[Rfam]
RNA sequence: AUACCCCAUGAUUCAGGUCCGCCGCAUCUCCUGGGUCCGUGGGGUCGGCCGGCCGGCGCUGGCACAUAGUGGCCUCCUCGUACCGCUGCCAAACGCCGACCGGCCCCCAA
Number, nucleotide and partner (000 for none) at each position: 001a000002u000003a045004c044005c043006c042007c041008a040009u039010g038011a000012u035013u034014c033015a032016g031017g030018u000019c000020c000021g000022c000023c000024g000025c000026a000027u000028c000029u000030c017031c016032u015033g014034g013035g012036u000037c000038c010039g009040u008041g007042g006043g005044g004045u003046c000047g105048g104049c103050c102051g101052g100053c000054c098055g097056g096057c095058g000059c000060u000061g000062g000063c000064a000065c000066a000067u000068a000069g000070u000071g000072g000073c000074c000075u000076c000077c000078u000079c000080g000081u000082a000083c000084c000085g000086c000087u000088g000089c000090c000091a000092a000093a000094c000095g057096c056097c055098g054099a000100c052101c051102g050103g049104c048105c047106c000107c000108c000109a000110a000
A member of the RNA family "EcpR1" from Mesorhizobium wenxiniae, 110 nucleotides long. About the family: Perviously named SmelC291, SmrC10, or Sra33. According to its overproduction phenotype it was renamed Elongated Cell Phenotype RNA1. Induced by stress,EcpR1 negatively regulates cell cycle master regulatory genes dnaA and gcrA at post-transcriptional level by base pairing between its strongly conserved GC-rich loop and the target mRNAs. The literature on the family includes a 2012 paper in RNA Biol by Wilms et al., "Deep sequencing uncovers numerous small RNAs on all four replicons of the plant pathogen Agrobacterium tumefaciens". By type it is a small RNA. It scores 97 bits against the family's covariance model. The family's consensus secondary structure was predicted with WAR.